A member of the RNA family "THF (Tetrahydrofolate) riboswitch aptamer" from Christensenella hongkongensis, 97 nucleotides long. The match comes from Rfam's covariance-model search (74 bits).

[Rfam]
RNA sequence: UGCAGAGUAGGUUUUGCGCGUCAAGUGUAUAAGGAUGGGAUGUCGCCUUAUAACGAAAAGGCCUUUGGCCUUGCGGUUCAAAACUGCGUCCGCUGCU
Number, nucleotide and partner (000 for none) at each position: 001u000002g096003c095004a094005g093006a000007g000008u000009a000010g085011g084012u083013u082014u081015u080016g079017c000018g077019c075020g074021u073022c000023a000024a000025g054026u053027g000028u052029a051030u050031a049032a048033g047034g046035a000036u000037g000038g091039g090040a089041u088042g087043u000044c000045g000046c034047c033048u032049u031050a030051u029052a028053a026054c025055g000056a000057a000058a072059a071060g070061g069062c000063c000064u000065u000066u000067g000068g000069c061070c060071u059072u058073g021074c020075g019076g000077u018078u000079c016080a015081a014082a013083a012084c011085u010086g000087c042088g041089u040090c039091c038092g000093c005094u004095g003096c002097u000